[Rfam]
RNA: Streptomyces-metH RNA
Nucleotides: 145
Base pairs, nucleotide, nucleotide: 060105061104062103063102066100068098069097108122109121111120112119113118
Number, partner (000 for none) and nucleotide at each position: 001000a002000u003000c004000g005000u006000c007000c008000g009000c010000c011000c012000c013000g014000u015000g016000g017000a018000c019000g020000c021000c022000c023000u024000g025000a026000a027000c028000a029000u030000c031000g032000g033000a034000g035000a036000a037000c038000g039000g040000u041000c042000c043000c044000g045000g046000a047000u048000a049000c050000c051000c052000u053000g054000g055000c056000g057000a058000g059000g060105u061104g062103c063102g064000c065000c066100c067000a068098g069097c070000c071000g072000g073000g074000g075000a076000c077000g078000c079000u080000c081000c082000g083000u084000g085000a086000g087000g088000g089000g090000a091000u092000c093000c094000c095000g096000g097069g098068c099000a100066g101000c102063c103062g104061c105060a106000a107000a108122g109121c110000c111120g112119a113118c114000a115000g116000c117000c118113g119112u120111c121109g122108c123000a124000c125000c126000c127000a128000g129000a130000g131000g132000g133000a134000g135000c136000c137000c138000c139000u140000u141000u142000c143000a144000u145000g